[Rfam]
Record summary
A member of the RNA family "MIR1120/MIR1122 microRNA precursor family" from Triticum aestivum, 87 nucleotides long. Lineage of the source: Eukaryota > Viridiplantae > Mesangiospermae > Liliopsida > Triticum. The literature on the family includes a 2007 paper in Genome Biol by Yao et al., "Cloning and characterization of microRNAs from wheat (Triticum aestivum L.)".

RNA sequence: GUACUCCCUCCGUCCCAUAAUAUAAGAUCAUUUUUUACACUAGUGUAGUGUCAAAAAUGCUCUUAUAUUAUGGGACAGAGGGAGCAG
Numbered sequence: 001g002u003a004c005u006c007c008c009u010c011c012g013u014c015c016c017a018u019a020a021u022a023u024a025a026g027a028u029c030a031u032u033u034u035u036u037a038c039a040c041u042a043g044u045g046u047a048g049u050g051u052c053a054a055a056a057a058u059g060c061u062c063u064u065a066u067a068u069u070a071u072g073g074g075a076c077a078g079a080g081g082g083a084g085c086a087g
Stems, first nucleotide, its partner, number of pairs: 004084002007081004013075005019069009029059007037051005